[Rfam]
RNA sequence: UAAAAAAAUAAAAUAAUUCCACGUAUAACCCCGCAAAUUGGUAGGGCGGGGGUUUCUACAGGGAGCCUUAACUUCCUAACUACGGAUACUUUUAUCGGUAGU
Number, nucleotide and partner (000 for none) at each position: 001u000002a000003a000004a000005a000006a000007a000008a000009u000010a000011a000012a000013a000014u000015a000016a000017u000018u088019c000020c000021a000022c084023g083024u082025a081026u000027a000028a000029c051030c050031c049032c048033g047034c046035a000036a000037a000038u000039u000040g000041g000042u000043a000044g000045g000046g034047c033048g032049g031050g030051g029052g000053u000054u000055u000056c000057u000058a000059c000060a000061g077062g076063g075064a074065g073066c000067c000068u000069u000070a000071a000072c000073u065074u064075c063076c062077u061078a000079a000080c000081u025082a024083c023084g022085g000086a000087u000088a018089c000090u000091u000092u000093u000094a000095u000096c000097g000098g000099u000100a000101g000102u000
RNA: Purine riboswitch aptamer